[Rfam]
RNA sequence: UUUUGUCGCUAGAACCUUGGCUGUGAAUUGUGUAUUAGUUAUCACAUCACAGUCAGAGUUCUAGCUAUACGA
Numbered sequence: 001u002u003u004u005g006u007c008g009c010u011a012g013a014a015c016c017u018u019g020g021c022u023g024u025g026a027a028u029u030g031u032g033u034a035u036u037a038g039u040u041a042u043c044a045c046a047u048c049a050c051a052g053u054c055a056g057a058g059u060u061c062u063a064g065c066u067a068u069a070c071g072a
Stems, first nucleotide, its partner, number of pairs: 004069003009064007017056001021052006030045003
mir-11 microRNA precursor family: a 72-nucleotide RNA sequence from Eumeta japonica. The match comes from Rfam's covariance-model search (64 bits). Rfam 15.1 lists 138 matches to the family in 136 species. Gene Ontology terms of the family: negative regulation of cell death, cellular response to gamma radiation and negative regulation of apoptotic process.